[Rfam]
Plasmid-encoded Shigella sRNA A: a 119-nucleotide sequence from Citrobacter rodentium. Pairs were carried over by alignment from the consensus structure, which was predicted with RNAfold. The match comes from Rfam's covariance-model search (75 bits). The family's RNA type in Rfam is small RNA.
RNA sequence: UGGCUGCGAAAAGAGUUUUAAUUUUUUUAUGAGACUGGCGAAAAUUACGGUCUCAGGCGACAGGCACAAUACGCUAAGCCCUUCAGGUUGCGUCGAGGCAGGCUGGAGGGUGACGUGUA
Numbered sequence: 001u002g003g004c005u006g007c008g009a010a011a012a013g014a015g016u017u018u019u020a021a022u023u024u025u026u027u028u029a030u031g032a033g034a035c036u037g038g039c040g041a042a043a044a045u046u047a048c049g050g051u052c053u054c055a056g057g058c059g060a061c062a063g064g065c066a067c068a069a070u071a072c073g074c075u076a077a078g079c080c081c082u083u084c085a086g087g088u089u090g091c092g093u094c095g096a097g098g099c100a101g102g103c104u105g106g107a108g109g110g111u112g113a114c115g116u117g118u119a
Stems, first nucleotide, its partner, number of pairs: 001066002004063003007059002013054003017050002019047005071118004